[Rfam]
RNA: c-di-GMP-I riboswitch aptamer
Organism: Kineothrix alysoides
RNA sequence: UAGAGUUAAGGGCAAACCCAUUUAAAGAUGGGGACGCAAAGCCAUAGGGUCUAAAGUGCUAAAACAGCACAAUGAUAGCCUGGUUGCCGCA
Numbered sequence: 001u002a003g004a005g006u007u008a009a010g011g012g013c014a015a016a017c018c019c020a021u022u023u024a025a026a027g028a029u030g031g032g033g034a035c036g037c038a039a040a041g042c043c044a045u046a047g048g049g050u051c052u053a054a055a056g057u058g059c060u061a062a063a064a065c066a067g068c069a070c071a072a073u074g075a076u077a078g079c080c081u082g083g084u085u086g087c088c089g090c091a
Stems, first nucleotide, its partner, number of pairs: 012037002017032006040085004046081003049076003056070004